[Rfam]
RNA: Small nucleolar RNA SNORA73 family
Organism: Carlito syrichta
RNA sequence: CUAGCAUGGACACACUUGGAGGUCACUCUCCUCAGCCGUGUCCAAGUGGAGAGGGGAGUGCAGGACUCUGCCCCGGGAUGUACAGUCGCUUCCCACUGCAUAGAAAUGGAGUCAACCCCCAAAACAGUGCCUACAAUUUCUCCAGAUUCUCAGGACUCUGUGGACAGUGACUAAGGAGACAAACCAUGCAGGUAACAGCC
Number, nucleotide and partner (000 for none) at each position: 001c103002u102003a101004g000005c000006a000007u098008g043009g042010a041011c040012a039013c000014a000015c035016u034017u000018g029019g028020a027021g026022g000023u000024c000025a000026c021027u020028c019029u018030c000031c000032u000033c000034a016035g015036c000037c000038g000039u012040g011041u010042c009043c008044a000045a000046g096047u095048g094049g093050a000051g000052a000053g000054g089055g000056g087057a086058g083059u000060g081061c080062a079063g000064g000065a000066c000067u000068c000069u000070g000071c000072c000073c000074c000075g000076g000077g000078a000079u062080g061081u060082a000083c058084a000085g000086u057087c056088g000089c054090u000091u000092c000093c049094c048095a047096c046097u000098g007099c000100a000101u003102a002103g001104a000105a000106a000107u000108g000109g000110a000111g000112u000113c000114a000115a000116c000117c000118c000119c000120c000121a000122a000123a000124a000125c000126a000127g000128u000129g000130c192131c191132u190133a000134c188135a187136a000137u000138u000139u000140c000141u000142c000143c000144a000145g000146a000147u177148u176149c175150u174151c000152a000153g000154g000155a000156c000157u163158c162159u000160g000161u000162g158163g157164a000165c000166a000167g000168u000169g000170a000171c000172u000173a000174a150175g149176g148177a147178g000179a000180c000181a000182a000183a000184c000185c000186a000187u135188g134189c000190a132191g131192g130193u000194a000195a000196c000197a000198g000199c000200c000